RNA sequence: GAGCACCUUAAAGAAUCGCUAUCAAAGUAACACAAACGGAGCAUUAAUCCUCGGAUUACUAGCUCUUUUAUUAUUACUUUGGGGAAAGUCCUCGGACACAUGACAGAAAGUGUCGCCUAUAAUGAGGUAUAACCAAUUCGCACUUCAUGGCCUUCUUUAUGAUCGAAGAAGAGUUCUUACUCGAGAUUGGGAGGUCGCGAAUUUGGUUUUGUUGGUCAUAGCACAGUUAUGCGAUUGUAACUUCUUUCCGUAAAAAAGAAAAAGGUUAUAACACAACGGGGCUUACUCUUAGGGUGUU
Number, nucleotide and partner (000 for none) at each position: 001g000002a298003g297004c296005a295006c294007c293008u292009u291010a290011a289012a000013g000014a236015a235016u234017c233018g232019c231020u000021a000022u082023c081024a080025a079026a078027g077028u076029a000030a000031c000032a000033c000034a000035a000036a000037c000038g000039g065040a064041g063042c062043a000044u061045u000046a000047a000048u000049c000050c000051u000052c000053g000054g000055a000056u000057u000058a000059c000060u000061a044062g042063c041064u040065c039066u000067u000068u000069u000070a000071u000072u000073a000074u000075u000076a028077c027078u026079u025080u024081g023082g022083g000084g000085a000086a284087a283088g282089u000090c281091c280092u279093c278094g000095g000096a000097c000098a000099c000100a000101u000102g114103a113104c112105a111106g000107a000108a000109a000110g000111u105112g104113u103114c102115g128116c127117c126118u125119a000120u000121a000122a000123u000124g000125a118126g117127g116128u115129a000130u000131a000132a000133c000134c000135a000136a202137u201138u200139c199140g198141c197142a000143c000144u000145u000146c000147a000148u000149g000150g195151c194152c193153u192154u000155c000156u000157u000158u000159a000160u000161g188162a187163u186164c185165g000166a000167a000168g000169a000170a000171g181172a000173g000174u000175u000176c000177u000178u000179a000180c000181u171182c000183g000184a000185g164186a163187u162188u161189g000190g000191g000192a153193g152194g151195u150196c000197g141198c140199g139200a138201a137202u136203u000204u000205g000206g000207u000208u000209u000210u000211g000212u000213u000214g000215g000216u000217c000218a000219u000220a000221g000222c000223a000224c000225a000226g000227u000228u000229a000230u000231g019232c018233g017234a016235u015236u014237g000238u268239a267240a266241c265242u264243u263244c000245u000246u000247u000248c000249c000250g000251u000252a000253a000254a000255a000256a000257a000258g000259a000260a000261a000262a000263a243264g242265g241266u240267u239268a238269u000270a000271a000272c000273a000274c000275a000276a000277c000278g093279g092280g091281g090282c088283u087284u086285a000286c000287u000288c000289u011290u010291a009292g008293g007294g006295u005296g004297u003298u002
RNA: RNase MRP